[Rfam]
RNA sequence: CGGUUGGGAGGGCUGCUUCGGCGGUCCGUUGGGUUCGCCCACCCGGCUG
Numbered sequence: 001c002g003g004u005u006g007g008g009a010g011g012g013c014u015g016c017u018u019c020g021g022c023g024g025u026c027c028g029u030u031g032g033g034u035u036c037g038c039c040c041a042c043c044c045g046g047c048u049g
Stems, first nucleotide, its partner, number of pairs: 001049008010027006030041004
Dot-bracket structure: ((((((((.((((((......))))))..((((....))))))))))))

Rfam assigns this 49-nucleotide RNA sequence to the family "DUF3800-VI RNA". The family's consensus secondary structure is taken from published work.